Background:
This 101-nucleotide RNA sequence from Monodelphis domestica belongs to the Rfam family "Small nucleolar RNA SNORD16". Its family is annotated with nucleolus and RNA processing in the Gene Ontology. The organism belongs to Monodelphis, within Eukaryota. The base pairs follow the family's consensus structure, which was predicted with PFOLD.

[Rfam]
RNA sequence: UGCUAUGAUGUCGUAAUUUGCGUCUUACCUAGCGUUCAGUGACAGUUGCCUGCUGUCAGUAAACUGGCGCUUUCUGGGUGAAGACUACUUGUAACUGAGCA
Numbered sequence: 001u002g003c004u005a006u007g008a009u010g011u012c013g014u015a016a017u018u019u020g021c022g023u024c025u026u027a028c029c030u031a032g033c034g035u036u037c038a039g040u041g042a043c044a045g046u047u048g049c050c051u052g053c054u055g056u057c058a059g060u061a062a063a064c065u066g067g068c069g070c071u072u073u074c075u076g077g078g079u080g081a082a083g084a085c086u087a088c089u090u091g092u093a094a095c096u097g098a099g100c101a
Base pairs, nucleotide, nucleotide: 001101002100003099021083023081024080031071032070033069034068039064040063041057042056043055044054045053